[Rfam]
RNA sequence: GAAUAUCUUCGGGGCGGGGUGAAAUUCCCUACCGGCGGUUACAGCCCGCGAGCCUUACGGCAUGAUUUGGUGAAAUUCCGAAGCCGACAGUACAGUCUGGAUGUGAGAAGAGAUAU
Numbered sequence: 001g002a003a004u005a006u007c008u009u010c011g012g013g014g015c016g017g018g019g020u021g022a023a024a025u026u027c028c029c030u031a032c033c034g035g036c037g038g039u040u041a042c043a044g045c046c047c048g049c050g051a052g053c054c055u056u057a058c059g060g061c062a063u064g065a066u067u068u069g070g071u072g073a074a075a076u077u078c079c080g081a082a083g084c085c086g087a088c089a090g091u092a093c094a095g096u097c098u099g100g101a102u103g104u105g106a107g108a109a110g111a112g113a114u115a116u
Stems, first nucleotide, its partner, number of pairs: 003114002006111005017029003031096002033086002035049004044084002054060001066082005088099003
The record is a 116-nucleotide sequence from [Eubacterium] nodatum, which matches "FMN riboswitch aptamer (RFN element)" in Rfam. The organism belongs to [Eubacterium] nodatum, within Bacteria. It scores 114 bits against the family's covariance model. The family's consensus secondary structure is taken from published work.